[Rfam]
RNA sequence: GGAGGUCAAAUUGUAGCCUUGGGAAUUACAAACGGAGUAUUUUUUACUCAAUUUAUUCCCGGGAAGGUCUGAGGAAUGAUCGAUAUCAUUUUCUAGCAGAAGAAUACCCUUAAAAGGGAUGCAGAGAAAUAGAAAAGGUGAGUUCGUGUGUUUUUCUGUCCUGGGAAAUUUGAGGGCUUAAACAGGCGGCUCGUGGAAAUGCUCUGUGAUCAGAUAUUUGAGUUAAAUUGCUACAGCGCUCUUGCGUAACUCAAUUCAGACUAUUCUUGACCUCC
Numbered sequence: 001g002g003a004g005g006u007c008a009a010a011u012u013g014u015a016g017c018c019u020u021g022g023g024a025a026u027u028a029c030a031a032a033c034g035g036a037g038u039a040u041u042u043u044u045u046a047c048u049c050a051a052u053u054u055a056u057u058c059c060c061g062g063g064a065a066g067g068u069c070u071g072a073g074g075a076a077u078g079a080u081c082g083a084u085a086u087c088a089u090u091u092u093c094u095a096g097c098a099g100a101a102g103a104a105u106a107c108c109c110u111u112a113a114a115a116g117g118g119a120u121g122c123a124g125a126g127a128a129a130u131a132g133a134a135a136a137g138g139u140g141a142g143u144u145c146g147u148g149u150g151u152u153u154u155u156c157u158g159u160c161c162u163g164g165g166a167a168a169u170u171u172g173a174g175g176g177c178u179u180a181a182a183c184a185g186g187c188g189g190c191u192c193g194u195g196g197a198a199a200u201g202c203u204c205u206g207u208g209a210u211c212a213g214a215u216a217u218u219u220g221a222g223u224u225a226a227a228u229u230g231c232u233a234c235a236g237c238g239c240u241c242u243u244g245c246g247u248a249a250c251u252c253a254a255u256u257c258a259g260a261c262u263a264u265u266c267u268u269g270a271c272c273u274c275c
Base pairs, nucleotide, nucleotide: 001275002274003273004272007269008268009267012235013234014233015232016231017230021060022059023058024057025056035049036048037047038046039045069259070258071257072256073255078211079210080209081208089103090102091101092100093099104120105119107118108117109116110115121207122206123205124204125203126202140192141191142190143189144188236247237246238245239244